[Rfam]
RNA sequence: GCGGAACUCAAAUGUGCAGCACUAUUCUGGAUUGAGUGGAAAGUGCUACGACAUUUGAGUUUCCC
Numbered sequence: 001g002c003g004g005a006a007c008u009c010a011a012a013u014g015u016g017c018a019g020c021a022c023u024a025u026u027c028u029g030g031a032u033u034g035a036g037u038g039g040a041a042a043g044u045g046c047u048a049c050g051a052c053a054u055u056u057g058a059g060u061u062u063c064c065c
Stems, first nucleotide, its partner, number of pairs: 004062009014052001015050002018047006025041003
Description:
Shown here is a 65-nucleotide sequence from Peromyscus maniculatus, a member of the family "mir-290 microRNA precursor family". On this family, see Houbaviy et al., Dev Cell 2003: "Embryonic stem cell-specific MicroRNAs".